[Rfam]
RNA: mir-181 microRNA precursor family
Organism: Poecilia reticulata
RNA sequence: AGGUCACAAUCAACAUUCAUUGCUGUCGGUGGGUUUGACUUUGUGGAAGAGCUCACUGAACGAUGAAUGCAACUGUGUCCCA
Numbered sequence: 001a002g003g004u005c006a007c008a009a010u011c012a013a014c015a016u017u018c019a020u021u022g023c024u025g026u027c028g029g030u031g032g033g034u035u036u037g038a039c040u041u042u043g044u045g046g047a048a049g050a051g052c053u054c055a056c057u058g059a060a061c062g063a064u065g066a067a068u069g070c071a072a073c074u075g076u077g078u079c080c081c082a
Stems, first nucleotide, its partner, number of pairs: 002081002005077004014069009026059006033052004